[Rfam]
RNA sequence: UGGAAAUGAUGAAAUAAAGAUAAUUGGGUGUUGAAUGUUGUAUGACUGGAAGUUUUUAAUAUGUAAAUUAAUCUAAGUUUAAUAUUUUAUAGGUAAAUUAAGUUUAAUAUUUUAUAGGUACUUAAUAGAAAGUGUGUGUGUGCGUGCGUGUGAUUGUGGAGGCUAUGGAAAGGGGGCACUGACUGGUGAUGCUGAUAUUGGAGUGCAUCUGAGGCUGUUGUAGAAACAUAUGGGUUGUUGGUUACAACAUUGCUGAUGAUUAUGACCCAAAAACAGCUCACCUAAGUAGCCUAACACCCUAAAAUCUUUAACAGGUUCAUUAAAUGUGUUCCUGUGAUCUGAUCCAA
Numbered sequence: 001u002g003g004a005a006a007u008g009a010u011g012a013a014a015u016a017a018a019g020a021u022a023a024u025u026g027g028g029u030g031u032u033g034a035a036u037g038u039u040g041u042a043u044g045a046c047u048g049g050a051a052g053u054u055u056u057u058a059a060u061a062u063g064u065a066a067a068u069u070a071a072u073c074u075a076a077g078u079u080u081a082a083u084a085u086u087u088u089a090u091a092g093g094u095a096a097a098u099u100a101a102g103u104u105u106a107a108u109a110u111u112u113u114a115u116a117g118g119u120a121c122u123u124a125a126u127a128g129a130a131a132g133u134g135u136g137u138g139u140g141u142g143c144g145u146g147c148g149u150g151u152g153a154u155u156g157u158g159g160a161g162g163c164u165a166u167g168g169a170a171a172g173g174g175g176g177c178a179c180u181g182a183c184u185g186g187u188g189a190u191g192c193u194g195a196u197a198u199u200g201g202a203g204u205g206c207a208u209c210u211g212a213g214g215c216u217g218u219u220g221u222a223g224a225a226a227c228a229u230a231u232g233g234g235u236u237g238u239u240g241g242u243u244a245c246a247a248c249a250u251u252g253c254u255g256a257u258g259a260u261u262a263u264g265a266c267c268c269a270a271a272a273a274c275a276g277c278u279c280a281c282c283u284a285a286g287u288a289g290c291c292u293a294a295c296a297c298c299c300u301a302a303a304a305u306c307u308u309u310a311a312c313a314g315g316u317u318c319a320u321u322a323a324a325u326g327u328g329u330u331c332c333u334g335u336g337a338u339c340u341g342a343u344c345c346a347a
Stems, first nucleotide, its partner, number of pairs: 001346004216249008225239004229234001